[Rfam]
RNA sequence: CCAGGGGGCCGGGCGACCGCGUCGAGGACUUGUCUUCGCCGAGGAAAGUCCGGGCACCACGGAAUAACGGUGCCGGGUAACGCCCGGCGGUCCCGCGCUUCGGUGCGGGGUCAGGGACAGUGCCACAGAAAGCAUACCGCCGCUCUUCGGGGCGGUAAGGUCGAAAGGGUGCGGCAAGAGCGCACCGCGGCUCCGGCAACGGCAGCCGGCACGGUAAACCCCACCGGGUGCAAGACCGAAUAGGGGCGGCACAUGGGCCUGUUCCGGCUCGCCGCCCGGGUUGGUCGCUGGAGCCUGUCCGCGAGGGCAGGCCGAGAGGAAUGGUCGCACAUCCACCUUCGGGUGGAGGACAGAACCCGGCUUACAGGCCCCCUGGCACU
Numbered sequence: 001c002c003a004g005g006g007g008g009c010c011g012g013g014c015g016a017c018c019g020c021g022u023c024g025a026g027g028a029c030u031u032g033u034c035u036u037c038g039c040c041g042a043g044g045a046a047a048g049u050c051c052g053g054g055c056a057c058c059a060c061g062g063a064a065u066a067a068c069g070g071u072g073c074c075g076g077g078u079a080a081c082g083c084c085c086g087g088c089g090g091u092c093c094c095g096c097g098c099u100u101c102g103g104u105g106c107g108g109g110g111u112c113a114g115g116g117a118c119a120g121u122g123c124c125a126c127a128g129a130a131a132g133c134a135u136a137c138c139g140c141c142g143c144u145c146u147u148c149g150g151g152g153c154g155g156u157a158a159g160g161u162c163g164a165a166a167g168g169g170u171g172c173g174g175c176a177a178g179a180g181c182g183c184a185c186c187g188c189g190g191c192u193c194c195g196g197c198a199a200c201g202g203c204a205g206c207c208g209g210c211a212c213g214g215u216a217a218a219c220c221c222c223a224c225c226g227g228g229u230g231c232a233a234g235a236c237c238g239a240a241u242a243g244g245g246g247c248g249g250c251a252c253a254u255g256g257g258c259c260u261g262u263u264c265c266g267g268c269u270c271g272c273c274g275c276c277c278g279g280g281u282u283g284g285u286c287g288c289u290g291g292a293g294c295c296u297g298u299c300c301g302c303g304a305g306g307g308c309a310g311g312c313c314g315a316g317a318g319g320a321a322u323g324g325u326c327g328c329a330c331a332u333c334c335a336c337c338u339u340c341g342g343g344u345g346g347a348g349g350a351c352a353g354a355a356c357c358c359g360g361c362u363u364a365c366a367g368g369c370c371c372c373c374u375g376g377c378a379c380u
Stems, first nucleotide, its partner, number of pairs: 001376010011365001013328006020041002023038006046363003050360005055230004064263001068226005073087005088114001089112010115221002120219002122215003137160002139156007168186006187210001188208005193202003234286004244277006255270005293312008